The family of this 86-nucleotide RNA from Triticum aestivum is "Small nucleolar RNA Z102/R77". Its family is annotated with RNA processing and nucleolus in the Gene Ontology. It scores 62 bits against the family's covariance model. Pairs were carried over by alignment from the consensus structure, which was predicted with PFOLD. Lineage of the source: Eukaryota > Viridiplantae > Streptophytina > Triticodae > Triticum. The family is grouped with related families in Rfam's "SNORD44 clan". The family's RNA type in Rfam is C/D-box small nucleolar RNA.
[Rfam]
RNA sequence: AGAUGAGAUGAUGAAUGAUAUUAAUUUCCCUAUUGGUUUGAUUGGCUGACAUGAUGGCCUAAAUACUGAACCGAAUCUGGUCAUCC
Number, nucleotide and partner (000 for none) at each position: 001a000002g085003a084004u083005g082006a000007g000008a000009u000010g000011a000012u000013g000014a000015a000016u000017g000018a000019u000020a000021u000022u000023a000024a000025u000026u000027u000028c000029c000030c000031u000032a000033u000034u000035g000036g000037u000038u000039u000040g000041a000042u000043u000044g059045g058046c057047u056048g000049a000050c000051a000052u000053g000054a000055u000056g047057g046058c045059c044060u000061a000062a000063a000064u000065a000066c000067u000068g000069a000070a000071c000072c000073g000074a000075a000076u000077c000078u000079g000080g000081u000082c005083a004084u003085c002086c000